[Rfam]
Shown here is a 59-nucleotide RNA from Microbacterium sp. cf046, a member of the family "msiK RNA".

RNA sequence: CCGCAAAUUCCAUCACUACGGAUCGUCCGGCACGUACCUGCCGGUGAAGGAGAAGAAUC
Numbered sequence: 001c002c003g004c005a006a007a008u009u010c011c012a013u014c015a016c017u018a019c020g021g022a023u024c025g026u027c028c029g030g031c032a033c034g035u036a037c038c039u040g041c042c043g044g045u046g047a048a049g050g051a052g053a054a055g056a057a058u059c
Stems, first nucleotide, its partner, number of pairs: 009051003013047003027044006

Pairs were carried over by alignment from the consensus structure, which is taken from published work.
By type it is a cis-regulatory element.
The match comes from Rfam's covariance-model search (63 bits).
Rfam 15.1 lists 1,374 matches to the family in 1,364 species.
Taxonomically the source falls in Microbacterium (Bacteria, Actinomycetota, Actinomycetes, Microbacteriaceae).